[Rfam]
RNA sequence: CGGCCUCUACCCCCUGUAACAGCAACUCCAUGUGGAAGUGCCCACUGAUUCCAGUGGGGCUGCUGUUAUCUGGGGUGGAGGC
Numbered sequence: 001c002g003g004c005c006u007c008u009a010c011c012c013c014c015u016g017u018a019a020c021a022g023c024a025a026c027u028c029c030a031u032g033u034g035g036a037a038g039u040g041c042c043c044a045c046u047g048a049u050u051c052c053a054g055u056g057g058g059g060c061u062g063c064u065g066u067u068a069u070c071u072g073g074g075g076u077g078g079a080g081g082c
Stems, first nucleotide, its partner, number of pairs: 010075003016069008026059006033053003

The record is an 82-nucleotide sequence from Nannospalax galili, which matches "mir-194 microRNA precursor family" in Rfam. Its family is annotated with RISC complex and miRNA-mediated post-transcriptional gene silencing in the Gene Ontology. The family's consensus secondary structure was predicted with RNAalifold. NCBI's taxonomy places the organism under Eukaryota, Euteleostomi, Dipnotetrapodomorpha, Myomorpha, Nannospalax.